[Rfam]
The record is a 44-nucleotide sequence from Aquisalinus flavus, which matches "Guanidine-II riboswitch aptamer (mini-ykkC)" in Rfam. From the family's description: Simpler in structure and has fewer highly conserved nucleotide positions than the ykkC-yxkD leader. Despite this each of its two stem-loop structures directly bind free guanidine. Therefore, mini-ykkC RNA motif represents a distinct class of guanidine-sensing RNAs. Its crystal structure was also determined.
RNA sequence: CGCGGGACGACCCGUGUUCUUCGUGCACUUUCGGGACGGCCCGA
Numbered sequence: 001c002g003c004g005g006g007a008c009g010a011c012c013c014g015u016g017u018u019c020u021u022c023g024u025g026c027a028c029u030u031u032c033g034g035g036a037c038g039g040c041c042c043g044a
Base pairs, nucleotide, nucleotide: 001016002015003014004013005012006011031044032043033042034041035040
Dot-bracket structure: ((((((....))))))..............(((((....)))))

The base pairs follow the family's consensus structure, which is taken from published work. A reference for the family is Sherlock et al. (2017), "Biochemical Validation of a Second Guanidine Riboswitch Class in Bacteria", Biochemistry.